About this RNA
A member of the RNA family "Small nucleolar RNA Z159/U59" from Raphidocelis subcapitata, 88 nucleotides long. The source organism's lineage runs through Eukaryota, Viridiplantae, core chlorophytes, Chlorophyceae and Raphidocelis. The family is grouped with related families in Rfam's "SNORD59 clan". Rfam classes the family as a C/D-box small nucleolar RNA. Rfam 15.1 lists 1,401 matches to the family in 272 species. Its family is annotated with nucleolus and RNA processing in the Gene Ontology.

[Rfam]
RNA sequence: CCGCCCGGUGAUGUUACAACAAACUUUCGUUCUACCGAGCAGGCAACAGCCUGUGUGGAAACAACUUGGAGACCUGAACUGAGGGCCA
Numbered sequence: 001c002c003g004c005c006c007g008g009u010g011a012u013g014u015u016a017c018a019a020c021a022a023a024c025u026u027u028c029g030u031u032c033u034a035c036c037g038a039g040c041a042g043g044c045a046a047c048a049g050c051c052u053g054u055g056u057g058g059a060a061a062c063a064a065c066u067u068g069g070a071g072a073c074c075u076g077a078a079c080u081g082a083g084g085g086c087c088a
Stems, first nucleotide, its partner, number of pairs: 003086004